This 195-nucleotide sequence from Enterococcus sulfureus belongs to the Rfam family "6S / SsrS RNA". The family's consensus secondary structure is taken from published work. A search with the family's covariance model found it, with a score of 60 bits. Rfam's curators write: E. coli 6S RNA was the first non coding RNA to be sequenced, but its function was unknown until recently. By type it is a non-coding RNA gene. The literature on the family includes a 2000 paper in Cell by Wassarman and Storz, "6S RNA regulates E. coli RNA polymerase activity".
Nucleotides: 195
Base pairs, nucleotide, nucleotide: 002193003192006189007188008187009186010185011184012182013181014180015179017178018177033162034161035160036159037158038157039156040154041153063135064134065133067131068130069129070128071127074125078124079123080122081120082119083118084117090111091110095107096106
Number, partner (000 for none) and nucleotide at each position: 001000g002193g003192u004000a005000a006189u007188c008187u009186g010185u011184g012182a013181u014180g015179u016000a017178c018177g019000a020000a021000u022000u023000u024000u025000c026000c027000c028000u029000a030000u031000c032000a033162g034161u035160a036159u037158u038157g039156a040154c041153c042000g043000a044000a045000c046000a047000u048000u049000u050000u051000u052000a053000u054000u055000g056000a057000u058000a059000u060000c061000u062000c063135g064134g065133g066000a067131u068130c069129c070128g071127u072000c073000c074125g075000g076000u077000g078124u079123c080122u081120c082119u083118g084117u085000u086000g087000g088000u089000a090111a091110c092000a093000u094000g095107c096106c097000u098000u099000a100000u101000c102000a103000u104000u105000u106096g107095g108000u109000a110091g111090u112000u113000c114000a115000a116000a117084a118083c119082g120081g121000u122080a123079g124078a125074c126000c127071g128070u129069g130068g131067a132000g133065c134064c135063c136000a137000c138000c139000u140000g141000c142000u143000u144000g145000u146000c147000u148000u149000u150000g151000c152000g153041g154040g155000a156039u157038c158037a159036a160035u161034a162033c163000a164000c165000c166000g167000g168000g169000a170000u171000a172000a173000a174000a175000a176000a177018c178017g179015g180014c181013a182012u183000c184011u185010a186009c187008g188007g189006a190000g191000a192003a193002u194000g195000c